[Rfam]
Nucleotides: 153
Stems, first nucleotide, its partner, number of pairs: 021054005027049003035044003088117002091113005099105001131153004
Number, partner (000 for none) and nucleotide at each position: 001000a002000u003000c004000u005000u006000u007000g008000c009000g010000c011000u012000u013000g014000a015000g016000g017000c018000a019000a020000u021054g022053a023052c024051g025050c026000a027049g028048c029047u030000a031000g032000u033000g034000a035044g036043g037042u038000u039000c040000u041000a042037a043036c044035c045000g046000a047029g048028g049027c050025g051024c052023g053022u054021c055000u056000a057000u058000u059000g060000c061000u062000g063000g064000u065000u066000g067000a068000a069000a070000a071000c072000u073000a074000u075000u076000u077000c078000c079000a080000a081000a082000c083000c084000c085000c086000c087000u088117u089116u090000u091113c092112g093111g094110c095109c096000u097000u098000u099105g100000c101000u102000u103000g104000a105099c106000u107000u108000u109095g110094g111093c112092c113091g114000u115000u116089g117088a118000u119000a120000a121000u122000u123000u124000u125000u126000g127000g128000a129000a130000g131153g132152g133151c134150u135000u136000c137000c138000a139000u140000u141000u142000u143000u144000g145000g146000a147000u148000a149000a150134a151133g152132c153131u
A member of the RNA family "U4 spliceosomal RNA" from Salvia splendens, 153 nucleotides long.
The family's RNA type in Rfam is spliceosomal small nuclear RNA.
Gene Ontology terms of the family: U4 snRNP and spliceosomal tri-snRNP complex assembly.
A search with the family's covariance model found it, with a score of 102 bits.
For this family Rfam cites "Structures of the human pre-catalytic spliceosome and its precursor spliceosome" (Zhan et al., Cell Res, 2018).